[Rfam]
A member of the RNA family "TPP riboswitch aptamer (THI element)" from Parahoeflea phototrophica, 114 nucleotides long. Its family is annotated with thiamine pyrophosphate binding in the Gene Ontology.
RNA sequence: GGCUCACCACAGGGGUGCCGCGUAGAGCCGCGGCUGAGAUGCGGGCGACAAGCCUGCGGACCCUCGAAGCUGAUCUGGAUAAUGCCAGCGUAGCAAGGAGGAACCAGGAUGUUC
Numbered sequence: 001g002g003c004u005c006a007c008c009a010c011a012g013g014g015g016u017g018c019c020g021c022g023u024a025g026a027g028c029c030g031c032g033g034c035u036g037a038g039a040u041g042c043g044g045g046c047g048a049c050a051a052g053c054c055u056g057c058g059g060a061c062c063c064u065c066g067a068a069g070c071u072g073a074u075c076u077g078g079a080u081a082a083u084g085c086c087a088g089c090g091u092a093g094c095a096a097g098g099a100g101g102a103a104c105c106a107g108g109a110u111g112u113u114c
Stems, first nucleotide, its partner, number of pairs: 007101002010098001011064004016058001017034005041057005069094004075088004